[Rfam]
RNA sequence: AUCAGAAACUCCUCAUAUACAAAUUUCUGAUCACUAAACACUCCGAUUCUUAAGAAUUGGGUGUUUUUUUAAUGCAAUUA
Numbered sequence: 001a002u003c004a005g006a007a008a009c010u011c012c013u014c015a016u017a018u019a020c021a022a023a024u025u026u027c028u029g030a031u032c033a034c035u036a037a038a039c040a041c042u043c044c045g046a047u048u049c050u051u052a053a054g055a056a057u058u059g060g061g062u063g064u065u066u067u068u069u070u071a072a073u074g075c076a077a078u079u080a
Base pairs, nucleotide, nucleotide: 001031002030003029004028005027006026007025008024036066037065038064039063040062041061043060044059045058
The family of this 80-nucleotide sequence from Prochlorococcus marinus is "Cyanobacterial functional RNA 10". The base pairs follow the family's consensus structure, which was predicted with mfold. The source organism's lineage runs through Bacteria, Bacillati, Cyanophyceae, Synechococcales and Prochlorococcus marinus subsp. pastoris. It is annotated as a small RNA.